[Rfam]
RNA sequence: CACCCCAACGAUGAAAUUUAUGAAACGUUAAAAGUAGUGGACCGAUUCGUUGAUGAAUGGUUCAUUCGGAGGGGUU
Number, nucleotide and partner (000 for none) at each position: 001c000002a075003c074004c073005c072006c071007a000008a000009c000010g000011a000012u000013g000014a000015a000016a000017u000018u000019u000020a000021u000022g000023a000024a000025a000026c000027g000028u000029u000030a000031a000032a000033a000034g000035u000036a000037g000038u000039g000040g000041a000042c000043c000044g000045a000046u000047u000048c000049g000050u000051u000052g000053a000054u000055g000056a000057a000058u000059g000060g000061u000062u000063c000064a000065u000066u000067c000068g000069g000070a000071g006072g005073g004074g003075u002076u000

The record is a 76-nucleotide RNA from Cynara cardunculus, which matches "Small nucleolar RNA R21" in Rfam. On this family, see Barneche et al., J Mol Biol 2001: "Identification of 66 box C/D snoRNAs in Arabidopsis thaliana: extensive gene duplications generated multiple isoforms predicting new ribosomal RNA 2'-O-methylation sites". Gene Ontology terms of the family: nucleolus and RNA processing. NCBI's taxonomy places the organism under Eukaryota, Gunneridae, asterids, Asterales, Cynara cardunculus subsp. cardunculus. By type it is a C/D-box small nucleolar RNA. It scores 49 bits against the family's covariance model.